[Rfam]
RNA sequence: AUGCGAUGAGUCGAUUGUGGUUUAUACCACAUACGCUAAGGAGAUCAUAAUGCAGGAGCAGAUCUUGGCAAGUUGUGUGAACCUGCUUGCCACACUUAAUCAAAAGUGCCUUUUCCCUUGUAAUAACAAGGGCUUUUUU
Numbered sequence: 001a002u003g004c005g006a007u008g009a010g011u012c013g014a015u016u017g018u019g020g021u022u023u024a025u026a027c028c029a030c031a032u033a034c035g036c037u038a039a040g041g042a043g044a045u046c047a048u049a050a051u052g053c054a055g056g057a058g059c060a061g062a063u064c065u066u067g068g069c070a071a072g073u074u075g076u077g078u079g080a081a082c083c084u085g086c087u088u089g090c091c092a093c094a095c096u097u098a099a100u101c102a103a104a105a106g107u108g109c110c111u112u113u114u115c116c117c118u119u120g121u122a123a124u125a126a127c128a129a130g131g132g133c134u135u136u137u138u139u
Stems, first nucleotide, its partner, number of pairs: 012035002016031006038112004042065004051060003066092008093108004115132007